Rfam assigns this 74-nucleotide RNA from Neogobius melanostomus to the family "Small nucleolar RNA SNORD19". Rfam classes the family as a C/D-box small nucleolar RNA. Rfam links the family to the GO terms nucleolus and RNA processing. For this family Rfam cites "RNomics: an experimental approach that identifies 201 candidates for novel, small, non-messenger RNAs in mouse" (Huttenhofer et al., EMBO J, 2001). The match comes from Rfam's covariance-model search (36 bits). Clan: SNORD19 clan. Rfam 15.1 lists 1,431 matches to the family in 609 species. The base pairs follow the family's consensus structure.
RNA sequence: UGGAAAUGAGGACAACAUGUGUGUCUUAACAUUUCGGUGAAGACUUCUAAUCCAACUCUGAUCCAACUAUUGGG
Number, nucleotide and partner (000 for none) at each position: 001u065002g064003g063004a062005a000006a000007u000008g000009a000010g000011g000012a000013c000014a000015a000016c000017a000018u000019g000020u000021g000022u000023g000024u000025c000026u000027u000028a000029a000030c000031a000032u000033u000034u000035c000036g000037g000038u000039g000040a000041a000042g000043a000044c000045u000046u000047c000048u000049a000050a000051u000052c000053c000054a000055a000056c000057u000058c000059u000060g000061a000062u004063c003064c002065a001066a000067c000068u000069a000070u000071u000072g000073g000074g000